Shown here is a 584-nucleotide part of an RNA from Sebaldella termitidis, a member of the family "Bacterial large subunit ribosomal RNA". Rfam links the family to the GO terms ribosome and structural constituent of ribosome.
RNA sequence: CCUGCAGUAGGACGGAAAGACCCCGUGGAGCUUUACUGUAGCUUGGCAUUGGGUUUUGGCAAUGUGUGUAUAGGAUAGUUGGGAGACGUUGAAUUUAUGGCGCUAGCUGUAAAGGAGUCACUGGUGGAAUACCAACCAUAUAUUGUCGGAAUUCUAAUCAUGGGUUUGUAACCUGUGAGACAGUGCUAGGUGGGCAGUUUGACUGGGGCGGUCGCCUCCUAAAGAGUAACGGAGGCGUUCAAAGGUUCCCUCAGGUUGGAUGGAAAUCAACCGAAGAGUGCAAAGGCAUAAGGGAGCUUGACUGCGAGACUGACGGGUCGAGCAGGCGCGAAAGCGGGACUUAGUGAUCCGGCGGUACCGAAUGGAAGGGCCGUCGCUCAACGGAUAAAAGCUACCCCGGGGAUAACAGGCUGAUACUUCCCAAGAGUCCAUAUCGACGGAAGUGUUUGGCACCUCGAUGUCGGCUCGUCUCAUCCUGGGGCUGGAGAAGGUCCCAAGGGUUGGGCUGUUCGCCCAUUAAAGAGGCACGCGAGCUGGGUUCAGAACGUCGUGAGACAGUUCGGUCCCUAUCCACUGCAGGCGUA
Numbered sequence: 001c002c003u004g005c006a007g008u009a010g011g012a013c014g015g016a017a018a019g020a021c022c023c024c025g026u027g028g029a030g031c032u033u034u035a036c037u038g039u040a041g042c043u044u045g046g047c048a049u050u051g052g053g054u055u056u057u058g059g060c061a062a063u064g065u066g067u068g069u070a071u072a073g074g075a076u077a078g079u080u081g082g083g084a085g086a087c088g089u090u091g092a093a094u095u096u097a098u099g100g101c102g103c104u105a106g107c108u109g110u111a112a113a114g115g116a117g118u119c120a121c122u123g124g125u126g127g128a129a130u131a132c133c134a135a136c137c138a139u140a141u142a143u144u145g146u147c148g149g150a151a152u153u154c155u156a157a158u159c160a161u162g163g164g165u166u167u168g169u170a171a172c173c174u175g176u177g178a179g180a181c182a183g184u185g186c187u188a189g190g191u192g193g194g195c196a197g198u199u200u201g202a203c204u205g206g207g208g209c210g211g212u213c214g215c216c217u218c219c220u221a222a223a224g225a226g227u228a229a230c231g232g233a234g235g236c237g238u239u240c241a242a243a244g245g246u247u248c249c250c251u252c253a254g255g256u257u258g259g260a261u262g263g264a265a266a267u268c269a270a271c272c273g274a275a276g277a278g279u280g281c282a283a284a285g286g287c288a289u290a291a292g293g294g295a296g297c298u299u300g301a302c303u304g305c306g307a308g309a310c311u312g313a314c315g316g317g318u319c320g321a322g323c324a325g326g327c328g329c330g331a332a333a334g335c336g337g338g339a340c341u342u343a344g345u346g347a348u349c350c351g352g353c354g355g356u357a358c359c360g361a362a363u364g365g366a367a368g369g370g371c372c373g374u375c376g377c378u379c380a381a382c383g384g385a386u387a388a389a390a391g392c393u394a395c396c397c398c399g400g401g402g403a404u405a406a407c408a409g410g411c412u413g414a415u416a417c418u419u420c421c422c423a424a425g426a427g428u429c430c431a432u433a434u435c436g437a438c439g440g441a442a443g444u445g446u447u448u449g450g451c452a453c454c455u456c457g458a459u460g461u462c463g464g465c466u467c468g469u470c471u472c473a474u475c476c477u478g479g480g481g482c483u484g485g486a487g488a489a490g491g492u493c494c495c496a497a498g499g500g501u502u503g504g505g506c507u508g509u510u511c512g513c514c515c516a517u518u519a520a521a522g523a524g525g526c527a528c529g530c531g532a533g534c535u536g537g538g539u540u541c542a543g544a545a546c547g548u549c550g551u552g553a554g555a556c557a558g559u560u561c562g563g564u565c566c567c568u569a570u571c572c573a574c575u576g577c578a579g580g581c582g583u584a
Base pairs, nucleotide, nucleotide: 001580002579003578004577005576006575007574008573010572011571012570014567015566022401023400024399025398027397028396029393030392031391032390033389035198036197037196038195042190043189044188045187046186047185048184051154052153053152054151055150056149057148058147059146060145061144062143063142064141065140066139067138068137078136079135080134081133082132085119086118087117094113095112096111097110098109099108100107101106158178159177160176161175162174163173164172165171166170201213202212203211204210214236215235216234217233218232219231237382239339240338245297246296247295248294249293250292251277252276254272255271256270257269258268259267278287279286302325303324304323305322308319309318310317327336328335329334350376351375352374353373354372355371356370358369359368410451411450412449414448415445416444417443418442419441420440421439425435426434462537463535464534465533466532467529468526469525470524471523472522475500476499478495479494480493481492482491483490502516503515504514505513506512543561544560545559546558547556548555549554
It scores 2720 bits against the family's covariance model. The source organism's lineage runs through Bacteria, Fusobacteriati, Fusobacteriales, Sebaldella and Sebaldella termitidis.